The record is a 68-nucleotide RNA from Oncorhynchus tshawytscha, which matches "mir-33 microRNA precursor family" in Rfam. Its family is annotated with gene silencing by miRNA and RISC complex in the Gene Ontology. The family's consensus secondary structure was predicted with PFOLD. The source organism's lineage runs through Eukaryota, Metazoa, Protacanthopterygii, Salmoninae and Oncorhynchus. On this family, see Li et al., BMC Genomics 2009: "Direct sequencing and expression analysis of a large number of miRNAs in Aedes aegypti and a multi-species survey of novel mosquito miRNAs".

[Rfam]
RNA sequence: CUGUAGUGCAUUGUAGUUGCAUUGCACGAUCCUGCAGCCCAGUGUAAUGUGUCUGCAGUGCAGUACAG
Numbered sequence: 001c002u003g004u005a006g007u008g009c010a011u012u013g014u015a016g017u018u019g020c021a022u023u024g025c026a027c028g029a030u031c032c033u034g035c036a037g038c039c040c041a042g043u044g045u046a047a048u049g050u051g052u053c054u055g056c057a058g059u060g061c062a063g064u065a066c067a068g
Stems, first nucleotide, its partner, number of pairs: 001068004006064001007062010019050001021048007